Overview:
CRISPR RNA direct repeat element: a 30-nucleotide RNA from Haladaptatus paucihalophilus. Its family is annotated with defense response in the Gene Ontology. The family's consensus secondary structure was predicted with WAR.
RNA sequence: GUUUCAGAAGUACCCUUGGUGGGUUGAAGC
Dot-bracket structure: ...........((((.....))))......